[Rfam]
RNA sequence: CCGUGAGGGGGAUGAUGUAUUACUAUGAAGCUCUCAAGAUGCUGACUUUUCUUGAAUCCGCAUCUGAGCGUCGAUUGAUUACUG
Numbered sequence: 001c002c003g004u005g006a007g008g009g010g011g012a013u014g015a016u017g018u019a020u021u022a023c024u025a026u027g028a029a030g031c032u033c034u035c036a037a038g039a040u041g042c043u044g045a046c047u048u049u050u051c052u053u054g055a056a057u058c059c060g061c062a063u064c065u066g067a068g069c070g071u072c073g074a075u076u077g078a079u080u081a082c083u084g
Base pairs, nucleotide, nucleotide: 001084003082004081005080006079
Overview:
Rfam assigns this 84-nucleotide RNA sequence from Triticum aestivum to the family "Small nucleolar RNA J33". Taxonomically the source falls in Triticum (Eukaryota, Embryophyta, Magnoliopsida, Poales). Its family is annotated with RNA processing and nucleolus in the Gene Ontology. Rfam classes the family as a C/D-box small nucleolar RNA.